Shown here is a 109-nucleotide RNA sequence from Cellvibrio sp. PSBB023, a member of the family "t44 RNA".
NCBI's taxonomy places the organism under Bacteria, Pseudomonadati, Gammaproteobacteria, Cellvibrionaceae, Cellvibrio.
[Rfam]
RNA sequence: AAUGUAAUUUACCAACGUCACAUAUAUACCGACACGCAAAACCUGGGUGCCCAAUGGCUGCUGUAUAGCGUCCAUGAUGGUUGGUUAGCGGGGUAUAUAGAGGCCUAAC
Number, nucleotide and partner (000 for none) at each position: 001a000002a000003u000004g000005u000006a000007a000008u000009u000010u000011a000012c000013c000014a000015a000016c000017g000018u000019c000020a000021c000022a000023u099024a098025u097026a096027u095028a094029c093030c092031g000032a000033c000034a000035c090036g089037c088038a000039a086040a000041a085042c084043c083044u000045g000046g000047g000048u000049g081050c080051c079052c000053a000054a000055u000056g000057g000058c000059u000060g000061c000062u000063g000064u000065a000066u000067a000068g000069c000070g000071u000072c000073c000074a000075u000076g000077a000078u000079g051080g050081u049082u000083g043084g042085u041086u039087a000088g037089c036090g035091g000092g030093g029094u028095a027096u026097a025098u024099a023100g000101a000102g000103g000104c000105c000106u000107a000108a000109c000
Rfam's curators write: This family consists of a number of bacterial RNA genes of between 135 and 170 bases in length. The t44 gene has been identified in several species of enteric bacteria but homologs have also been identified in Pseudomonas and Coxiella species. The t44 gene is found between the map and rpsB genes in all species in the full alignment apart from Shigella flexneri.